[Rfam]
RNA: Plastid-clpP 5UTR RNA
Nucleotides: 069
Stems, first nucleotide, its partner, number of pairs: 003022002006019001008017003043068002051060003
Number, partner (000 for none) and nucleotide at each position: 001000a002000u003022u004021u005000c006019u007000g008017u009016u010015u011000g012000u013000g014000a015010g016009a017008a018000g019006a020000a021004a022003g023000a024000g025000a026000a027000g028000c029000a030000u031000a032000u033000c034000u035000a036000c037000u038000c039000u040000a041000c042000a043068c044067u045000c046000g047000a048000u049000a050000a051060g052059u053058g054000c055000c056000a057000a058053u059052a060051c061000u062000c063000g064000a065000u066000a067044a068043g069000u